[Rfam]
RNA sequence: CUCUGAAGAGUCCGAAUAAUCGGCACCGAAGGAGAAAUACAUGGUUUCAUGUAGAAACUCUCAGGUUAUGGAACAGAG
Numbered sequence: 001c002u003c004u005g006a007a008g009a010g011u012c013c014g015a016a017u018a019a020u021c022g023g024c025a026c027c028g029a030a031g032g033a034g035a036a037a038u039a040c041a042u043g044g045u046u047u048c049a050u051g052u053a054g055a056a057a058c059u060c061u062c063a064g065g066u067u068a069u070g071g072a073a074c075a076g077a078g
Stems, first nucleotide, its partner, number of pairs: 001078005012023004025066003028062002032060003038053006